[Rfam]
RNA sequence: UAAAUUCUUGGGAAUGAAGUUCUCCCAAGGGUUAAACCUAAACCGCUUAUUUAGCCGAUGACUUCUGCAAUUUA
Numbered sequence: 001u002a003a004a005u006u007c008u009u010g011g012g013a014a015u016g017a018a019g020u021u022c023u024c025c026c027a028a029g030g031g032u033u034a035a036a037c038c039u040a041a042a043c044c045g046c047u048u049a050u051u052u053a054g055c056c057g058a059u060g061a062c063u064u065c066u067g068c069a070a071u072u073u074a
Base pairs, nucleotide, nucleotide: 010026011025012024013023016065017064018063019062020061021060045055046054047053